[Rfam]
This 87-nucleotide RNA from Chelativorans petroleitrophicus belongs to the Rfam family "Glycine riboswitch aptamer". It scores 65 bits against the family's covariance model. Rfam describes the family as follows. This family represents the bacterial glycine riboswitch.

RNA sequence: UGCGCGUCCGUGGGAGAGAGCAGCAGGAGCUGCCGCCGAAGGGGAAAUCGCCCGAAAUCUCUCAGGCAAAAGAACCGCGGAUGCGUU
Number, nucleotide and partner (000 for none) at each position: 001u000002g000003c000004g000005c000006g082007u081008c080009c079010g078011u077012g076013g075014g000015a000016g000017a000018g000019a000020g033021c032022a031023g030024c000025a000026g000027g000028a000029g000030c023031u022032g021033c020034c000035g067036c066037c065038g063039a062040a000041g000042g061043g060044g059045a000046a000047a000048u055049c054050g000051c000052c000053c000054g049055a048056a000057a000058u000059c044060u043061c042062u039063c038064a000065g037066g036067c035068a000069a000070a000071a000072g000073a000074a000075c013076c012077g011078c010079g009080g008081a007082u006083g000084c000085g000086u000087u000